RNA sequence: CGACGCCGCGCGGGAGAGUCCCCACGCCGGUCGUGGGGCGCCGAAGGGGCAAUCUCCCCGACAAGCUCUCAGGCGCCAGGACCGCGCGGACCAG
Numbered sequence: 001c002g003a004c005g006c007c008g009c010g011c012g013g014g015a016g017a018g019u020c021c022c023c024a025c026g027c028c029g030g031u032c033g034u035g036g037g038g039c040g041c042c043g044a045a046g047g048g049g050c051a052a053u054c055u056c057c058c059c060g061a062c063a064a065g066c067u068c069u070c071a072g073g074c075g076c077c078a079g080g081a082c083c084g085c086g087c088g089g090a091c092c093a094g
Stems, first nucleotide, its partner, number of pairs: 006089008020038006040074003043070002047068003053061002

The family of this 94-nucleotide RNA from Ornithinimicrobium sp. CNJ-824 is "Glycine riboswitch aptamer". Taxonomically the source falls in Ornithinimicrobium (Bacteria, Bacillati, Actinomycetes, Micrococcales). Clan: Glycine riboswitch clan. Rfam links the family to the GO term glycine biosynthetic process.